[Rfam]
RNA sequence: GUCCACUAUGACCCCUAGAUCCCUUUCCGCCAGGCUCCUUCCUAGACAGUCGCUUCCCAUCUUGUAUGUAUGGGAAGGAGCCUGGCGGAAAGGGAUCUAGGGGUCAUAGUGGACCACA
Numbered sequence: 001g002u003c004c005a006c007u008a009u010g011a012c013c014c015c016u017a018g019a020u021c022c023c024u025u026u027c028c029g030c031c032a033g034g035c036u037c038c039u040u041c042c043u044a045g046a047c048a049g050u051c052g053c054u055u056c057c058c059a060u061c062u063u064g065u066a067u068g069u070a071u072g073g074g075a076a077g078g079a080g081c082c083u084g085g086c087g088g089a090a091a092g093g094g095a096u097c098u099a100g101g102g103g104u105c106a107u108a109g110u111g112g113a114c115c116a117c118a
Base pairs, nucleotide, nucleotide: 010105011104012103013102014101015100016099018097019096021094022093023092024091025090026089027088028087029086030085031084032083033082034081035080036079037078038077039076040075041074042073043072044071046069047068
The record is a 118-nucleotide RNA sequence from Pelodiscus sinensis, which matches "mraW RNA" in Rfam. Lineage of the source: Eukaryota > Deuterostomia > Chordata > Craniata > Pelodiscus. Pairs were carried over by alignment from the consensus structure, which is taken from published work. The family has 45 seed sequences and 851 matches in Rfam 15.1.